[Rfam]
RNA sequence: UGGAGGCCGAUACUCGAGCUGUUAUCAAGUACCUGCAGCUUGACACUGUGUCCUCCUACAGCAACACACCUUCUGAUGACCGCAAGUUGCCAAGCUUUGCUUGUGGACAGAUACGGGGUGGACACUG
Numbered sequence: 001u002g003g004a005g006g007c008c009g010a011u012a013c014u015c016g017a018g019c020u021g022u023u024a025u026c027a028a029g030u031a032c033c034u035g036c037a038g039c040u041u042g043a044c045a046c047u048g049u050g051u052c053c054u055c056c057u058a059c060a061g062c063a064a065c066a067c068a069c070c071u072u073c074u075g076a077u078g079a080c081c082g083c084a085a086g087u088u089g090c091c092a093a094g095c096u097u098u099g100c101u102u103g104u105g106g107a108c109a110g111a112u113a114c115g116g117g118g119u120g121g122a123c124a125c126u127g
Stems, first nucleotide, its partner, number of pairs: 002056005014043004021036002024034001067120006080106008
Dot-bracket structure: .(((((.......((((...((.(.........)))...))))........)))))..........((((((.......((((((((...........))))))))........)))))).......

Rfam assigns this 127-nucleotide sequence from Dreissena polymorpha to the family "Small Cajal body specific RNA 8". The match comes from Rfam's covariance-model search (60 bits). NCBI's taxonomy places the organism under Eukaryota, Opisthokonta, Lophotrochozoa, Neoheterodontei, Dreissena. On this family, see Darzacq et al., EMBO J 2002: "Cajal body-specific small nuclear RNAs: a novel class of 2'-O-methylation and pseudouridylation guide RNAs". Rfam describes the family as follows. scaRNAs are a specific class of small nuclear RNAs which localise to the Cajal bodies and guide the modification of RNA polymerase II transcribed spliceosomal RNAs U1, U2, U4, U5 and U12. U92 belong to the H/ACA box class of guide RNAs as it has the predicted hairpin-hinge-hairpin-tail structure, conserved H/ACA-box motifs and is found associated with GAR1.